[Rfam]
Overview:
The record is a 194-nucleotide RNA from Prunus yedoensis, which matches "MIR159 microRNA precursor family" in Rfam. The literature on the family includes a 2004 paper in Plant Cell by Sunkar and Zhu, "Novel and stress-regulated microRNAs and other small RNAs from Arabidopsis".

RNA sequence: GACAAUAAAAGGGAGCUCCCUUCAGUCCAAGCAUAGAGAAGAAAAGGAUGAAAUUUAUCUCCCGCAUCAUUCACACAUUCGCAGUAGAAACAUCAACCCCCUUUUCUACUGUGUUUGAAUGAAUGAGUCGGCAGCUAAUCCAAACCCUUUGCCCUUCCAUGAGUGGACUGAAGAAAGCUCACUUAAAUCAUCUC
Numbered sequence: 001g002a003c004a005a006u007a008a009a010a011g012g013g014a015g016c017u018c019c020c021u022u023c024a025g026u027c028c029a030a031g032c033a034u035a036g037a038g039a040a041g042a043a044a045a046g047g048a049u050g051a052a053a054u055u056u057a058u059c060u061c062c063c064g065c066a067u068c069a070u071u072c073a074c075a076c077a078u079u080c081g082c083a084g085u086a087g088a089a090a091c092a093u094c095a096a097c098c099c100c101c102u103u104u105u106c107u108a109c110u111g112u113g114u115u116u117g118a119a120u121g122a123a124u125g126a127g128u129c130g131g132c133a134g135c136u137a138a139u140c141c142a143a144a145c146c147c148u149u150u151g152c153c154c155u156u157c158c159a160u161g162a163g164u165g166g167a168c169u170g171a172a173g174a175a176a177g178c179u180c181a182c183u184u185a186a187a188u189c190a191u192c193u194c
Base pairs, nucleotide, nucleotide: 013180014179015178016177017176020173023170024169025168026167027166028165029164036157059134060133062131063130064129068125069124070123071122076117
NCBI's taxonomy places the organism under Eukaryota, Embryophyta, eudicotyledons, rosids, Prunus yedoensis.